[Rfam]
RNA sequence: GGCCCGGAGGGUCUCAGAGGAUCGCCCGGACUCUGCCAACAGAGACCCGGGCGAUCCCCCUCCACUUCCCCGGGCC
Numbered sequence: 001g002g003c004c005c006g007g008a009g010g011g012u013c014u015c016a017g018a019g020g021a022u023c024g025c026c027c028g029g030a031c032u033c034u035g036c037c038a039a040c041a042g043a044g045a046c047c048c049g050g051g052c053g054a055u056c057c058c059c060c061u062c063c064a065c066u067u068c069c070c071c072g073g074g075c076c
Base pairs, nucleotide, nucleotide: 001076002075003074004073005072006071007070009068011065012064017059019057020056021055022054023053024052025051026050027049028048029047031044032043033042034041035040
About this RNA
Shown here is a 76-nucleotide RNA from Lymphocryptovirus humangamma4, a member of the family "Epstein-Barr virus stable intronic sequence RNA 2". A reference for the family is Moss et al. (2014), "RNA families in Epstein-Barr virus", RNA Biol. Taxonomically the source falls in Lymphocryptovirus humangamma4 (Viruses, Duplodnaviria, Heunggongvirae, Gammaherpesvirinae).